Alphaproteobacterial sRNA ar45: a 139-nucleotide RNA from Aureimonas fodinaquatilis. For this family Rfam cites "A survey of sRNA families in alpha-proteobacteria" (del Val et al., RNA Biol, 2012). It is annotated as a small RNA. NCBI's taxonomy places the organism under Bacteria, Pseudomonadota, Alphaproteobacteria, Hyphomicrobiales, Aureimonas.
[Rfam]
RNA sequence: GCCCUAUGUCGCACGUGCCUGUGGGCGUCCCCCGGUCCUCAAAUGCGAGGGUUGCCGGGACGGUACCUGGAGUUUCUCCAGUCGGUUUCGCUGCUCGUGAAAUCGUGGACGCCUUGAAGCAACGACGGUUCGGGCCUUU
Numbered sequence: 001g002c003c004c005u006a007u008g009u010c011g012c013a014c015g016u017g018c019c020u021g022u023g024g025g026c027g028u029c030c031c032c033c034g035g036u037c038c039u040c041a042a043a044u045g046c047g048a049g050g051g052u053u054g055c056c057g058g059g060a061c062g063g064u065a066c067c068u069g070g071a072g073u074u075u076c077u078c079c080a081g082u083c084g085g086u087u088u089c090g091c092u093g094c095u096c097g098u099g100a101a102a103u104c105g106u107g108g109a110c111g112c113c114u115u116g117a118a119g120c121a122a123c124g125a126c127g128g129u130u131c132g133g134g135c136c137u138u139u
Stems, first nucleotide, its partner, number of pairs: 001135004008126004016121003023114008031059005037050004067081005083105003088100004